RNA sequence: AAGAAGGUAGCUGGAGAGUGAAGAAUUGACUUCACGCCGACGAGGUAAAAUCUUUCAGGCGCGGAAUUAUCCGCAAGGACUGUUACUGGACG
Numbered sequence: 001a002a003g004a005a006g007g008u009a010g011c012u013g014g015a016g017a018g019u020g021a022a023g024a025a026u027u028g029a030c031u032u033c034a035c036g037c038c039g040a041c042g043a044g045g046u047a048a049a050a051u052c053u054u055u056c057a058g059g060c061g062c063g064g065a066a067u068u069a070u071c072c073g074c075a076a077g078g079a080c081u082g083u084u085a086c087u088g089g090a091c092g
Stems, first nucleotide, its partner, number of pairs: 006087006013080001019034004036060003039056002043054003
The family of this 92-nucleotide RNA sequence from Mesocricetibacter intestinalis is "Glycine riboswitch aptamer". The match comes from Rfam's covariance-model search (42 bits). NCBI's taxonomy places the organism under Bacteria, Pseudomonadati, Pasteurellales, Pasteurellaceae, Mesocricetibacter.